RNA sequence: GAUGCUGAGGUAGUAGGUUGUAUAGUUCAGAGUUUUAUCAAUGGGGUAACUGUGCAAUCUGCUAGCUUAUCAUU
Numbered sequence: 001g002a003u004g005c006u007g008a009g010g011u012a013g014u015a016g017g018u019u020g021u022a023u024a025g026u027u028c029a030g031a032g033u034u035u036u037a038u039c040a041a042u043g044g045g046g047u048a049a050c051u052g053u054g055c056a057a058u059c060u061g062c063u064a065g066c067u068u069a070u071c072a073u074u
Stems, first nucleotide, its partner, number of pairs: 001074004007068003011064016038045002
The family of this 74-nucleotide RNA sequence from Bursaphelenchus okinawaensis is "let-7 microRNA precursor family". The family's consensus secondary structure was predicted with RNAalifold. This family represents the microRNAs (miRNA) let-7 and mir-98. let-7 was identified from a study of developmental timing in C. elegans, and was later shown to be part of a much larger class of non-coding RNAs termed miRNAs. The family has 64 seed sequences and 8,694 matches in Rfam 15.1. The source organism's lineage runs through Eukaryota, Protostomia, Rhabditida, Aphelenchoididae and Bursaphelenchus.